[Rfam]
Description:
The family of this 73-nucleotide sequence from Cognatiyoonia koreensis is "Singlet oxygen resistance RNA X". The organism belongs to Cognatiyoonia, within Bacteria. SorX (RSs2461)like SorY is a singlet oxygen induced sRNA that counteracts oxidative stress by targeting mRNA for a transporter in Rhodobacter. It also has an impact on resistance against organic hydroperoxides. Rfam classes the family as a small RNA. Gene Ontology term of the family: response to photooxidative stress. Rfam 15.1 lists 528 matches to the family in 356 species.
RNA sequence: AACCCGCUGGUGAUCGGGUUUUUAUCACCACCUCCCUGUUGGACUGGCCCGCGCCUUGUGCGCGGGCUUUUUU
Numbered sequence: 001a002a003c004c005c006g007c008u009g010g011u012g013a014u015c016g017g018g019u020u021u022u023u024a025u026c027a028c029c030a031c032c033u034c035c036c037u038g039u040u041g042g043a044c045u046g047g048c049c050c051g052c053g054c055c056u057u058g059u060g061c062g063c064g065g066g067c068u069u070u071u072u073u
Stems, first nucleotide, its partner, number of pairs: 008030007047067008